Annotation:
Rfam assigns this 372-nucleotide RNA sequence from Cyanobacterium sp. T60_A2020_053 to the family "Bacterial RNase P class A". The source organism's lineage runs through Bacteria, Bacillati, Cyanophyceae, Chroococcales and Cyanobacterium. Rfam links the family to the GO terms tRNA processing, ribonuclease P activity and dimeric ribonuclease P complex.
RNA sequence: AGAGUUGGUGAGGUAGUUGCAAGUUAAGAUUUUCCUGUGACCUUAACUUGAGGAAAGUCCGGGCUUCCAAAAGAUCAAACUUGCUGGGUAACCCCCAGUGCGCGUGAGCGUGAGGAUAGUGCCACAGAAAAAUACCGCCUAAUCUUUGGUUAGGUAAGGGUGCAAAGGUGCGGUAAGGGCGCACCAGCAGUGUCGAGAGGCGCUGGCUCGGUAAACCCCGGUGGGAAGCAAGGUCGAAGGAAUGACGGUUGAUCUUUUACCGAUUCCGCUUCUGGUGUACCGCUUGAGGUGUUUGGUAACAAACAUCCUAGAUAGAUAACUGCCCCUUGAUUUUAUCAAGGAACAGAACCCGGCUUACGUCCAACUCUUUUU
Numbered sequence: 001a002g003a004g005u006u007g008g009u010g011a012g013g014u015a016g017u018u019g020c021a022a023g024u025u026a027a028g029a030u031u032u033u034c035c036u037g038u039g040a041c042c043u044u045a046a047c048u049u050g051a052g053g054a055a056a057g058u059c060c061g062g063g064c065u066u067c068c069a070a071a072a073g074a075u076c077a078a079a080c081u082u083g084c085u086g087g088g089u090a091a092c093c094c095c096c097a098g099u100g101c102g103c104g105u106g107a108g109c110g111u112g113a114g115g116a117u118a119g120u121g122c123c124a125c126a127g128a129a130a131a132a133u134a135c136c137g138c139c140u141a142a143u144c145u146u147u148g149g150u151u152a153g154g155u156a157a158g159g160g161u162g163c164a165a166a167g168g169u170g171c172g173g174u175a176a177g178g179g180c181g182c183a184c185c186a187g188c189a190g191u192g193u194c195g196a197g198a199g200g201c202g203c204u205g206g207c208u209c210g211g212u213a214a215a216c217c218c219c220g221g222u223g224g225g226a227a228g229c230a231a232g233g234u235c236g237a238a239g240g241a242a243u244g245a246c247g248g249u250u251g252a253u254c255u256u257u258u259a260c261c262g263a264u265u266c267c268g269c270u271u272c273u274g275g276u277g278u279a280c281c282g283c284u285u286g287a288g289g290u291g292u293u294u295g296g297u298a299a300c301a302a303a304c305a306u307c308c309u310a311g312a313u314a315g316a317u318a319a320c321u322g323c324c325c326c327u328u329g330a331u332u333u334u335a336u337c338a339a340g341g342a343a344c345a346g347a348a349c350c351c352g353g354c355u356u357a358c359g360u361c362c363a364a365c366u367c368u369u370u371u372u
Base pairs, nucleotide, nucleotide: 001368002367003366004365005364006363007362008361012324013323014322015321016320017319018318020050021049022048023047024046025045026044027043028042055356056355057354059353060352061351062350063349064228065227066226067225073260079222080221082220083219084098085097086096087095088094099113100111101110102109103108114218115217119216120215121212122211123210135159136158137155138154139153140152141151142150143149144148167185168184169183170182171181172180187207188205189204190203191202192201193200194199232281233280234279240272241271242270251265252264253263254262288307289306290305291304292303293302294301295300